[Rfam]
RNA sequence: CGGAGCAGCCGCAGCUCGCAGCCCGCAGAAGACGCCCAGAGCGGCGGGCGGACGGACCGACGGACUCGCGCCGCGUCCACCUGUCGGCGGGGCCGGGCUGAGCGCGCACGUCGCGCGCGCGGAGCAGCCGUGCCCGCCGCCCAGGUCCCGCGCCAGGGCGCACACGCUCCGGCCCCCCCACCCGGCCGGGGCGGGAGUUUGCACCUUUCCCUGCCCGGGUGCUCCGGCCGCCGCUGCAAAGCCAACUUUGGAAAAAGUUUUUCGGAGGAAGCUUGGGCUUUGAGGUGCCCAGCCCUGCGCUUUCCGAUUUGGGGGACCGUUCCAGAAAAUGUUGCAAAAAAGCUAAGCCGGCGGGCAGAGGAAAACGCCUUUAGCCGGGGAGUGAAGACGAACCAUCGGCUGCCGUUUUCCUUUUCCUCUUGGAGGUUGGAGUCCCCUGGGCGCCCCCACACGGCUAGACGCCUCGGCUGGUUCGCGACGCAGCCCCCCGGUCGUGGAUGCUCGCUCGGGCUCGGGAUCCGCCCAGGUAGCGGCCGCGGACCCGUGUCCGGCACCCAGGCCCUCCCCAGCCCCCCAAAGACGGAGCCCGGGC
Numbered sequence: 001c002g003g004a005g006c007a008g009c010c011g012c013a014g015c016u017c018g019c020a021g022c023c024c025g026c027a028g029a030a031g032a033c034g035c036c037c038a039g040a041g042c043g044g045c046g047g048g049c050g051g052a053c054g055g056a057c058c059g060a061c062g063g064a065c066u067c068g069c070g071c072c073g074c075g076u077c078c079a080c081c082u083g084u085c086g087g088c089g090g091g092g093c094c095g096g097g098c099u100g101a102g103c104g105c106g107c108a109c110g111u112c113g114c115g116c117g118c119g120c121g122g123a124g125c126a127g128c129c130g131u132g133c134c135c136g137c138c139g140c141c142c143a144g145g146u147c148c149c150g151c152g153c154c155a156g157g158g159c160g161c162a163c164a165c166g167c168u169c170c171g172g173c174c175c176c177c178c179c180a181c182c183c184g185g186c187c188g189g190g191g192c193g194g195g196a197g198u199u200u201g202c203a204c205c206u207u208u209c210c211c212u213g214c215c216c217g218g219g220u221g222c223u224c225c226g227g228c229c230g231c232c233g234c235u236g237c238a239a240a241g242c243c244a245a246c247u248u249u250g251g252a253a254a255a256a257g258u259u260u261u262u263c264g265g266a267g268g269a270a271g272c273u274u275g276g277g278c279u280u281u282g283a284g285g286u287g288c289c290c291a292g293c294c295c296u297g298c299g300c301u302u303u304c305c306g307a308u309u310u311g312g313g314g315g316a317c318c319g320u321u322c323c324a325g326a327a328a329a330u331g332u333u334g335c336a337a338a339a340a341a342g343c344u345a346a347g348c349c350g351g352c353g354g355g356c357a358g359a360g361g362a363a364a365a366c367g368c369c370u371u372u373a374g375c376c377g378g379g380g381a382g383u384g385a386a387g388a389c390g391a392a393c394c395a396u397c398g399g400c401u402g403c404c405g406u407u408u409u410c411c412u413u414u415u416c417c418u419c420u421u422g423g424a425g426g427u428u429g430g431a432g433u434c435c436c437c438u439g440g441g442c443g444c445c446c447c448c449a450c451a452c453g454g455c456u457a458g459a460c461g462c463c464u465c466g467g468c469u470g471g472u473u474c475g476c477g478a479c480g481c482a483g484c485c486c487c488c489c490g491g492u493c494g495u496g497g498a499u500g501c502u503c504g505c506u507c508g509g510g511c512u513c514g515g516g517a518u519c520c521g522c523c524c525a526g527g528u529a530g531c532g533g534c535c536g537c538g539g540a541c542c543c544g545u546g547u548c549c550g551g552c553a554c555c556c557a558g559g560c561c562c563u564c565c566c567c568a569g570c571c572c573c574c575c576a577a578a579g580a581c582g583g584a585g586c587c588c589g590g591g592c
Stems, first nucleotide, its partner, number of pairs: 002243002005237005011231002014228003018224001020223003025210001027208003031204001033160005039154001041153003046148001048146002053090001055088001057087007067075003095142001097140002102137003106133005111122004163201002166198005172192004177185002245258005265567001267565003271560007284506004292501002295497005304491003312488004317483001334343002348378005355372001357370002360366001382481003387476001389475007396467004400458002402455005408449001409431003413426005432442004508549004514543003518540004526535003572591003
Shown here is a 592-nucleotide RNA from Trichechus manatus, a member of the family "c-sis internal ribosome entry site (IRES)".
Rfam links the family to the GO term ribosome binding.
Rfam 15.1 lists 123 matches to the family in 119 species.
Rfam describes the family as follows. This family represents the c-sis 5'-UTR which contains three modules that can individually mediate internal ribosome entry. However, the full length sequence is required for maximal IRES activity. It is thought that the three IRES elements are somehow responsive to cellular changes and act to regulate the level of translation.